[Rfam]
RNA sequence: CUGCGUUAGGGAUUGAAGCGAUAUCCUUUUUUGUUUUUAUAAAAAAGAUUUAGCGAAAAGCCCGACCACGC
Numbered sequence: 001c002u003g004c005g006u007u008a009g010g011g012a013u014u015g016a017a018g019c020g021a022u023a024u025c026c027u028u029u030u031u032u033g034u035u036u037u038u039a040u041a042a043a044a045a046a047g048a049u050u051u052a053g054c055g056a057a058a059a060g061c062c063c064g065a066c067c068a069c070g071c
Base pairs, nucleotide, nucleotide: 009063010062011061013059014058018054019053023049024048025047029044030043031042032041033040
RNA: Flavo-1 RNA